[Rfam]
RNA sequence: GCCAGUUAAUGACGCCUCGUCCGGAAACCCACCCGGUGGGCCGGGUGAGGCUGAACGAUCCUGGC
Numbered sequence: 001g002c003c004a005g006u007u008a009a010u011g012a013c014g015c016c017u018c019g020u021c022c023g024g025a026a027a028c029c030c031a032c033c034c035g036g037u038g039g040g041c042c043g044g045g046u047g048a049g050g051c052u053g054a055a056c057g058a059u060c061c062u063g064g065c
Base pairs, nucleotide, nucleotide: 001065002064003063004062005061014051015050016049017048018047019046020045021044022043023042029039030038031037
The record is a 65-nucleotide RNA from Ornithorhynchus anatinus, which matches "Selenocysteine insertion sequence 1" in Rfam.
Rfam links the family to the GO term selenocysteine incorporation.
Pairs were carried over by alignment from the consensus structure, which is taken from published work.
A reference for the family is Walczak et al. (1996), "A novel RNA structural motif in the selenocysteine insertion element of eukaryotic selenoprotein mRNAs", RNA.
NCBI's taxonomy places the organism under Eukaryota, Vertebrata, Sarcopterygii, Amniota, Ornithorhynchus.